Rfam assigns this 115-nucleotide RNA from Medicago truncatula to the family "MIR2593 microRNA precursor family". Rfam 15.1 lists 1,262 matches to the family in 6 species.
RNA sequence: AUAUAAGCAAAUUUUACUUUUUAGAUUCAUUCAAUUAAUGAUGUAUGUGGUUCAUAUAUUAUGAACCACAUACAUCAUUAAUUGAAUGAACCUAAAAAGUAAAAUUUGCUUAUAU
Numbered sequence: 001a002u003a004u005a006a007g008c009a010a011a012u013u014u015u016a017c018u019u020u021u022u023a024g025a026u027u028c029a030u031u032c033a034a035u036u037a038a039u040g041a042u043g044u045a046u047g048u049g050g051u052u053c054a055u056a057u058a059u060u061a062u063g064a065a066c067c068a069c070a071u072a073c074a075u076c077a078u079u080a081a082u083u084g085a086a087u088g089a090a091c092c093u094a095a096a097a098a099g100u101a102a103a104a105u106u107u108g109c110u111u112a113u114a115u
Stems, first nucleotide, its partner, number of pairs: 002114011014102011026090018048068004